The record is a 379-nucleotide RNA sequence from Leucobacter komagatae, which matches "Bacterial RNase P class A" in Rfam.
Ribonuclease P (RNase P) is a ubiquitous endoribonuclease, found in archaea, bacteria and eukarya as well as chloroplasts and mitochondria.
Lineage of the source: Bacteria > Actinomycetes > Micrococcales > Microbacteriaceae > Leucobacter.
RNA sequence: AUGGGCCGGUGGACGGUUGCGUCGCGUGUCGCUUGCGACAUCGCGCCGAGGAACGUCCGGGCUCCGCAGGGGAGAACGGUGGGUAACGCCCACCCGGGGUAACCCGCGAGAAAGUGCAACAGAGAGUAGACCGCCUGCCGUGGUUCGCCGUGGCCGGUAAGGCUGAAAGGGUGGGGUAAGAGCCCACCGGCGUUCGUGGUAACACGGGCGGCCAGGUAAACCUCGUUCGGAGCAAGGCCAGACAGCAGACGAUGACGCGCCCCGCCGAGUCUGCGGGUGGGCUGCUAGAGGGUACUGGCAACAGUGCCCCGAGAGAGAUAACCGUCUAAGUUGGCUUCGGCCAACGGGACAGAACCCGGCGUACAGCUGGCCCAUUCCU
Number, nucleotide and partner (000 for none) at each position: 001a375002u374003g373004g372005g371006c370007c369008g368009g367010u366011g364012g326013a325014c324015g323016g322017u321018u320019g000020c048021g047022u000023c045024g044025c043026g042027u000028g000029u000030c000031g000032c000033u000034u000035g000036c000037g000038a000039c000040a000041u000042c026043g025044c024045g023046c000047c021048g020049a000050g000051g000052a000053a362054c361055g360056u000057c359058c358059g357060g356061g355062c232063u231064c230065c229066g000067c000068a000069g262070g261071g260072g000073a000074g228075a227076a226077c225078g224079g093080u092081g091082g090083g089084u000085a000086a000087c000088g000089c083090c082091c081092a080093c079094c108095c106096g105097g104098g103099g000100u000101a000102a000103c098104c097105c096106g095107c000108g094109a223110g222111a000112a000113a000114g221115u220116g217117c216118a000119a000120c000121a000122g000123a000124g000125a000126g000127u000128a000129g000130a000131c162132c161133g158134c157135c156136u000137g154138c153139c152140g151141u150142g149143g148144u000145u000146c000147g000148c143149c142150g141151u140152g139153g138154c137155c000156g135157g134158u133159a000160a000161g132162g131163c000164u000165g000166a000167a000168a000169g000170g188171g187172u186173g185174g184175g183176g000177u000178a000179a000180g000181a000182g000183c175184c174185c173186a172187c171188c170189g000190g212191c210192g209193u208194u207195c206196g205197u204198g203199g000200u000201a000202a000203c198204a197205c196206g195207g194208g193209c192210g191211g000212c190213c000214a000215g000216g117217u116218a000219a000220a115221c114222c110223u109224c078225g077226u076227u075228c074229g065230g064231a063232g062233c000234a000235a000236g283237g282238c281239c280240a000241g000242a000243c000244a000245g274246c273247a272248g271249a270250c269251g000252a000253u267254g266255a000256c264257g263258c000259g000260c071261c070262c069263c257264g256265c000266c254267g253268a000269g250270u249271c248272u247273g246274c245275g000276g000277g000278u000279g000280g239281g238282c237283u236284g000285c000286u000287a000288g000289a000290g309291g308292g307293u306294a305295c304296u303297g302298g000299c000300a000301a000302c297303a296304g295305u294306g293307c292308c291309c290310c000311g000312a000313g000314a000315g000316a000317g000318a000319u000320a018321a017322c016323c015324g014325u013326c012327u000328a000329a000330g000331u000332u000333g000334g000335c000336u000337u000338c000339g000340g000341c000342c000343a000344a000345c000346g000347g000348g000349a000350c000351a000352g000353a000354a000355c061356c060357c059358g058359g057360c055361g054362u053363a000364c011365a000366g010367c009368u008369g007370g006371c005372c004373c003374a002375u001376u000377c000378c000379u000